[Rfam]
RNA sequence: AGCGGCAUGGAUGCCGCUCGUAUUAAGCAGUAGCGAGUUUCGCGCUUAUGCUAAACUCACAGUCAAAACUAUACAAGGAUGUAUAGUUUUGACGAGU
Dot-bracket structure: ((((((......))))))................((((((.(((....))).))))))...(((((((((((((......)))))))))))))....
Numbered sequence: 001a002g003c004g005g006c007a008u009g010g011a012u013g014c015c016g017c018u019c020g021u022a023u024u025a026a027g028c029a030g031u032a033g034c035g036a037g038u039u040u041c042g043c044g045c046u047u048a049u050g051c052u053a054a055a056c057u058c059a060c061a062g063u064c065a066a067a068a069c070u071a072u073a074c075a076a077g078g079a080u081g082u083a084u085a086g087u088u089u090u091g092a093c094g095a096g097u
Stems, first nucleotide, its partner, number of pairs: 001018006035058006042051003062093013

Rfam assigns this 97-nucleotide RNA from Treponema vincentii to the family "TD-2 RNA". A search with the family's covariance model found it, with a score of 62 bits. The organism belongs to Treponema vincentii, within Bacteria. The family's consensus secondary structure is taken from published work. A reference for the family is Weinberg et al. (2007), "Identification of 22 candidate structured RNAs in bacteria using the CMfinder comparative genomics pipeline", Nucleic Acids Res. The family has 36 seed sequences and 310 matches in Rfam 15.1. Its Rfam clan is "TD (Treponema denticola) motifs".